[Rfam]
RNA sequence: GUGGACAUCUUACUAGACAGUGCUGGAUUGUUCUGUUGUGUUCUAACACUGUCUGGUAACGAUGUUUAA
Numbered sequence: 001g002u003g004g005a006c007a008u009c010u011u012a013c014u015a016g017a018c019a020g021u022g023c024u025g026g027a028u029u030g031u032u033c034u035g036u037u038g039u040g041u042u043c044u045a046a047c048a049c050u051g052u053c054u055g056g057u058a059a060c061g062a063u064g065u066u067u068a069a
Stems, first nucleotide, its partner, number of pairs: 002068008010059013024045004

The family of this 69-nucleotide RNA from Acipenser ruthenus is "mir-8/mir-141/mir-200 microRNA precursor family". The match comes from Rfam's covariance-model search (71 bits). The literature on the family includes a 2001 paper in Science by Lagos-Quintana et al., "Identification of novel genes coding for small expressed RNAs". Clan: mir-8 microRNA precursor clan. The family's consensus secondary structure was predicted with RNAalifold. Taxonomically the source falls in Acipenser (Eukaryota, Vertebrata, Actinopteri, Chondrostei). The family has 164 seed sequences and 2,669 matches in Rfam 15.1.